[Rfam]
Nucleotides: 140
Base pairs, nucleotide, nucleotide: 020052021051022050023049024048026047027046028045034042087116091114092113095110096109097108099106100105129140130139132137
Number, partner (000 for none) and nucleotide at each position: 001000a002000g003000c004000g005000u006000u007000g008000u009000a010000c011000a012000g013000u014000g015000g016000c017000a018000g019000u020052a021051u022050c023049g024048u025000a026047g027046c028045c029000a030000a031000u032000g033000a034042g035000a036000u037000u038000u039000a040000u041000c042034u043000g044000a045028g046027g047026c048024a049023c050022g051021a052020u053000u054000a055000u056000u057000u058000g059000c060000u061000a062000a063000u064000u065000g066000a067000a068000a069000c070000a071000u072000a073000a074000g075000u076000a077000g078000a079000a080000a081000u082000u083000u084000a085000a086000a087116a088000u089000a090000a091114a092113u093000g094000c095110a096109g097108u098000a099106u100105u101000u102000a103000a104000g105100a106099a107000g108097a109096c110095u111000c112000a113092g114091u115000u116087u117000g118000a119000u120000u121000u122000c123000a124000g125000a126000a127000c128000c129140c130139c131000a132137a133000u134000c135000u136000u137132u138000a139130g140129g

Rfam assigns this 140-nucleotide sequence from Canis lupus to the family "U4 spliceosomal RNA".
A reference for the family is Zwieb (1997), "The uRNA database", Nucleic Acids Res.
A search with the family's covariance model found it, with a score of 60 bits.
U4 small nuclear RNA (U4 snRNA) is a component of the major U2-dependent spliceosome.
It is annotated as a spliceosomal small nuclear RNA.
The organism belongs to Canis lupus, within Eukaryota.
The family is grouped with related families in Rfam's "U4 clan".
Pairs were carried over by alignment from the consensus structure, which is taken from published work.